[Rfam]
RNA sequence: UGUCGACCCUCCAAAGGUCGACGUACCGAAGAGGCUUGUCUUUCUUGCCGGGCGUGCGGAAGGGACUCCCCUUCCAAUCGAUGGCUCUUCACGGAACGGCGUUUCGCCGUGCCGCGUCUUGCCAACGG
Dot-bracket structure: ((((((((.......)))))))).........(((...........)))......(((.................................(((((.....))))).............)))......

The family of this 128-nucleotide RNA sequence from Lichenibacterium ramalinae is "speF leader". A search with the family's covariance model found it, with a score of 57 bits. Gene Ontology term of the family: regulation of gene expression. Pairs were carried over by alignment from the consensus structure, which was predicted with RNAalifold. Rfam describes the family as follows. This family is a putative regulatory RNA structure that is found upstream of the speF gene encoding ornithine decarboxylase in Agrobacterium tumefaciens and other alpha-proteobacteria.